Shown here is a 60-nucleotide sequence from Bacillus mycoides, a member of the family "Fluoride riboswitch aptamer (crcB RNA motif)". Its family is annotated with response to fluoride and positive regulation of gene expression in the Gene Ontology. Lineage of the source: Bacteria > Bacilli > Bacillaceae > Bacillus > Bacillus mycoides.

[Rfam]
RNA sequence: AUAAUCAUAGGUGAUGGAGUUCGCCAUAACCGCUGCUUAGCUAAUGACUCCUACCAGUAU
Numbered sequence: 001a002u003a004a005u006c007a008u009a010g011g012u013g014a015u016g017g018a019g020u021u022c023g024c025c026a027u028a029a030c031c032g033c034u035g036c037u038u039a040g041c042u043a044a045u046g047a048c049u050c051c052u053a054c055c056a057g058u059a060u
Stems, first nucleotide, its partner, number of pairs: 010025004016051006032041003